Overview:
A member of the RNA family "TPP riboswitch aptamer (THI element)" from Anaerobacillus alkaliphilus, 101 nucleotides long. The match comes from Rfam's covariance-model search (72 bits). Vitamin B(1) in its active form thiamin pyrophosphate (TPP) is an essential coenzyme that is synthesised by coupling of pyrimidine and thiazole moieties in bacteria.
RNA sequence: GAAUCACUCUAGGGGUGCUAGAAAGCUGAGAGAGACGAUCGUCUUGACCCUUAUUACCUGAUCUAGGUCAUACUAGCGUAGGGAAGAAGUGCAGAACUUUA
Number, nucleotide and partner (000 for none) at each position: 001g000002a000003a000004u000005c000006a000007c000008u087009c086010u085011a051012g050013g049014g048015g000016u000017g026018c025019u024020a000021g000022a000023a000024a019025g018026c017027u000028g000029a000030g000031a000032g000033a044034g043035a042036c041037g000038a000039u000040c000041g036042u035043c034044u033045u000046g000047a000048c014049c013050c012051u011052u000053a000054u000055u000056a000057c082058c081059u080060g079061a000062u000063c076064u075065a074066g073067g000068u000069c000070a000071u000072a000073c066074u065075a064076g063077c000078g000079u060080a059081g058082g057083g000084a000085a010086g009087a008088a000089g000090u000091g000092c000093a000094g000095a000096a000097c000098u000099u000100u000101a000